[Rfam]
RNA sequence: GCCGGUCCUCGGUCGUGGUCGCCGGGAGCGGGCUUCGUCCUCCCCGGGGGCUUCGACUGAGCACCGGC
Numbered sequence: 001g002c003c004g005g006u007c008c009u010c011g012g013u014c015g016u017g018g019u020c021g022c023c024g025g026g027a028g029c030g031g032g033c034u035u036c037g038u039c040c041u042c043c044c045c046g047g048g049g050g051c052u053u054c055g056a057c058u059g060a061g062c063a064c065c066g067g068c
Stems, first nucleotide, its partner, number of pairs: 001068006009060005017052004022047005027041002031039001